[Rfam]
The family of this 127-nucleotide RNA sequence is "LAGLIDADG-2 RNA". It is annotated as a small RNA.
RNA sequence: ACAUGAGGCUCACUUAGAGCCUCGCUAACCUGGGGAGGUUAGGUAUCCAUCUGGGUAGCGGUAGCUCCGCCCCUCUGGCGAGACGGCGACCAGAGACCGGGUUGUCAGACCCGGUCGGGACCGUCUC
Numbered sequence: 001a002c003a004u005g006a007g008g009c010u011c012a013c014u015u016a017g018a019g020c021c022u023c024g025c026u027a028a029c030c031u032g033g034g035g036a037g038g039u040u041a042g043g044u045a046u047c048c049a050u051c052u053g054g055g056u057a058g059c060g061g062u063a064g065c066u067c068c069g070c071c072c073c074u075c076u077g078g079c080g081a082g083a084c085g086g087c088g089a090c091c092a093g094a095g096a097c098c099g100g101g102u103u104g105u106c107a108g109a110c111c112c113g114g115u116c117g118g119g120a121c122c123g124u125c126u127c
Stems, first nucleotide, its partner, number of pairs: 005023007025042007047078003053073003058070004080127007095116007